[Rfam]
RNA sequence: UGCUGAGGUUUUCCUCGGUAAUUAACUGCAGCCGAUUCUACUAAACUUCGGCAGUUAACUGCCGAGGGGCAU
Numbered sequence: 001u002g003c004u005g006a007g008g009u010u011u012u013c014c015u016c017g018g019u020a021a022u023u024a025a026c027u028g029c030a031g032c033c034g035a036u037u038c039u040a041c042u043a044a045a046c047u048u049c050g051g052c053a054g055u056u057a058a059c060u061g062c063c064g065a066g067g068g069g070c071a072u
Base pairs, nucleotide, nucleotide: 012068013067015065016064017063018062019061020060022058023057024056025055026054027053028052029051
Shown here is a 72-nucleotide RNA sequence from Medicago truncatula, a member of the family "MIR2629 microRNA precursor family". The source organism's lineage runs through Eukaryota, Mesangiospermae, eudicotyledons, fabids and Medicago. Pairs were carried over by alignment from the consensus structure, which was predicted with RNAalifold.